[Rfam]
Shown here is a 149-nucleotide RNA sequence from Paenibacillus sp. Leaf72, a member of the family "FMN riboswitch aptamer (RFN element)".
RNA sequence: AUGAAUCUUCAGGGCAGGGUGCAAUUCCCUACCGGCGGUAAGGAUGCGUUCGGAGCAUCCAGAGCCCGCGACUCCUAGCUGCUUGCAGCCGGGACUGAUCUGGUGAGAAUCCAGAGCCGACGGUAUAGUCCGGACGGGAGAAGAUCAGA
Numbered sequence: 001a002u003g004a005a006u007c008u009u010c011a012g013g014g015c016a017g018g019g020u021g022c023a024a025u026u027c028c029c030u031a032c033c034g035g036c037g038g039u040a041a042g043g044a045u046g047c048g049u050u051c052g053g054a055g056c057a058u059c060c061a062g063a064g065c066c067c068g069c070g071a072c073u074c075c076u077a078g079c080u081g082c083u084u085g086c087a088g089c090c091g092g093g094a095c096u097g098a099u100c101u102g103g104u105g106a107g108a109a110u111c112c113a114g115a116g117c118c119g120a121c122g123g124u125a126u127a128g129u130c131c132g133g134a135c136g137g138g139a140g141a142a143g144a145u146c147a148g149a
Base pairs, nucleotide, nucleotide: 005145006144007143008142009141010140017029018028019027031129032128033119034118035069036068037067038066064117065116073094074093099115100114101113102112103111121132122131123130
It scores 113 bits against the family's covariance model.
Gene Ontology term of the family: FMN binding.